[Rfam]
RNA sequence: UUAAAAUUAAAACUCCGAGUCCAAUAACCUGUAGACACUGUUAUAAAUUCUUGUAACAUUGUUAUGGUUUUUGGACCGACAGGGUAUGUUGGGAAACCGGCAUGCCUCCCGUUGCGGAAAGGAGAUGAUAGACGACAGGU
Numbered sequence: 001u002u003a004a005a006a007u008u009a010a011a012a013c014u015c016c017g018a019g020u021c022c023a024a025u026a027a028c029c030u031g032u033a034g035a036c037a038c039u040g041u042u043a044u045a046a047a048u049u050c051u052u053g054u055a056a057c058a059u060u061g062u063u064a065u066g067g068u069u070u071u072u073g074g075a076c077c078g079a080c081a082g083g084g085u086a087u088g089u090u091g092g093g094a095a096a097c098c099g100g101c102a103u104g105c106c107u108c109c110c111g112u113u114g115c116g117g118a119a120a121g122g123a124g125a126u127g128a129u130a131g132a133c134g135a136c137a138g139g140u
Stems, first nucleotide, its partner, number of pairs: 011126001013124004019076006026069004034063004082107011108117002
RNA: Molybdenum/Tungsten riboswitch aptamer (Moco RNA motif)